[Rfam]
RNA sequence: UCCCGGUGAGGAAUCUAAGACCAUAGGAAGUGCCGUAUGACACUUUAAACAGCAGCUGCUUU
Numbered sequence: 001u002c003c004c005g006g007u008g009a010g011g012a013a014u015c016u017a018a019g020a021c022c023a024u025a026g027g028a029a030g031u032g033c034c035g036u037a038u039g040a041c042a043c044u045u046u047a048a049a050c051a052g053c054a055g056c057u058g059c060u061u062u
Stems, first nucleotide, its partner, number of pairs: 010056001027046006
The family of this 62-nucleotide RNA is "Small nucleolar RNA U49". For this family Rfam cites "Multiple snoRNA gene clusters from Arabidopsis" (Brown et al., RNA, 2001). Pairs were carried over by alignment from the consensus structure, which was predicted with CMfinder. Rfam's curators put it in the seed alignment. By type it is a C/D-box small nucleolar RNA.